[Rfam]
RNA sequence: AAAAAAGAUAGAGGAAGCGAUGCAUCAUAGUAUACUGGGGAGCUGGCAAGCGCAGAAACAGUAGAAAGGUAAUCAUCGCCGAAGGAUAAUUGCUCGGCAGAGAAUUGUCCUGGGGUUACAGGGAAUACCUGUAGCACUCCUUCCGAUAGGAAGAGGCGCUAUUGGCACG
Numbered sequence: 001a002a003a004a005a006a007g008a009u010a011g012a013g014g015a016a017g018c019g020a021u022g023c024a025u026c027a028u029a030g031u032a033u034a035c036u037g038g039g040g041a042g043c044u045g046g047c048a049a050g051c052g053c054a055g056a057a058a059c060a061g062u063a064g065a066a067a068g069g070u071a072a073u074c075a076u077c078g079c080c081g082a083a084g085g086a087u088a089a090u091u092g093c094u095c096g097g098c099a100g101a102g103a104a105u106u107g108u109c110c111u112g113g114g115g116u117u118a119c120a121g122g123g124a125a126u127a128c129c130u131g132u133a134g135c136a137c138u139c140c141u142u143c144c145g146a147u148a149g150g151a152a153g154a155g156g157c158g159c160u161a162u163u164g165g166c167a168c169g
Base pairs, nucleotide, nucleotide: 007163008162009161010160011159017079018078019077020076021075022074025071033063034062035061036060037059083111084110085109086108087107088106089105090104091103094100112138113137115135116134117133118132119131120130121129122128140153141152142151143150144149

Record summary
Rfam assigns this 169-nucleotide sequence from Copranaerobaculum intestinale to the family "Lysine riboswitch aptamer". The organism belongs to Copranaerobaculum, within Bacteria. Rfam links the family to the GO term lysine biosynthetic process.